The family of this 429-nucleotide RNA sequence from Marivirga lumbricoides is "Bacterial RNase P class A". It scores 185 bits against the family's covariance model. Lineage of the source: Bacteria > Pseudomonadati > Cytophagia > Cytophagales > Marivirga.
RNA sequence: AUUGCAAGCUGUCUUAUCGCCUCUGGUUUUCCAGGGGAGGAAAGUCCGGGCAACACAGAGCACCGUACCUGUGGAAACACAGGGUUCCGAUUGGUAAUGGAUCGGAAACAGAAAGUGCCACAGAAAAAAUGUAGCCUUAGUUGAGUAGUUCUGCUACUCUUCAGAGGUCAUAGUGAAAAGGCGAGGUAAGAGCUCACCGUUUUUGGUAGUAAUACCAGAAUGCAUGGUAAACCUUUCGGGUUGUAAGGCCACAUACAUUUUUGCCUCUCGUCCGAAGAAAUUCUGGAAGAGAAUAAGGGCUGCUCGUCCGAAAUGUUGUUGUUCGACAACAACAGGUGAAAAGGGGUAGGCUGCGUUAGAUAAAUGAUAGGAGUUCCGGUGGAUUUAUUCACUGGUUUACAGAACCCGGCUUAUAGGCUUGCAAUUUUA
Numbered sequence: 001a002u003u004g005c006a007a008g009c010u011g012u013c014u015u016a017u018c019g020c021c022u023c024u025g026g027u028u029u030u031c032c033a034g035g036g037g038a039g040g041a042a043a044g045u046c047c048g049g050g051c052a053a054c055a056c057a058g059a060g061c062a063c064c065g066u067a068c069c070u071g072u073g074g075a076a077a078c079a080c081a082g083g084g085u086u087c088c089g090a091u092u093g094g095u096a097a098u099g100g101a102u103c104g105g106a107a108a109c110a111g112a113a114a115g116u117g118c119c120a121c122a123g124a125a126a127a128a129a130u131g132u133a134g135c136c137u138u139a140g141u142u143g144a145g146u147a148g149u150u151c152u153g154c155u156a157c158u159c160u161u162c163a164g165a166g167g168u169c170a171u172a173g174u175g176a177a178a179a180g181g182c183g184a185g186g187u188a189a190g191a192g193c194u195c196a197c198c199g200u201u202u203u204u205g206g207u208a209g210u211a212a213u214a215c216c217a218g219a220a221u222g223c224a225u226g227g228u229a230a231a232c233c234u235u236u237c238g239g240g241u242u243g244u245a246a247g248g249c250c251a252c253a254u255a256c257a258u259u260u261u262u263g264c265c266u267c268u269c270g271u272c273c274g275a276a277g278a279a280a281u282u283c284u285g286g287a288a289g290a291g292a293a294u295a296a297g298g299g300c301u302g303c304u305c306g307u308c309c310g311a312a313a314u315g316u317u318g319u320u321g322u323u324c325g326a327c328a329a330c331a332a333c334a335g336g337u338g339a340a341a342a343g344g345g346g347u348a349g350g351c352u353g354c355g356u357u358a359g360a361u362a363a364a365u366g367a368u369a370g371g372a373g374u375u376c377c378g379g380u381g382g383a384u385u386u387a388u389u390c391a392c393u394g395g396u397u398u399a400c401a402g403a404a405c406c407c408g409g410c411u412u413a414u415a416g417g418c419u420u421g422c423a424a425u426u427u428u429a
Stems, first nucleotide, its partner, number of pairs: 001425010011414001012372007020037007042412003046409005051243004060327001063239003067235001068083005084109001085107008110234002115232002117228003132172002134168005140162001180198002183195003199223001201220002204217005247352004258342005320334004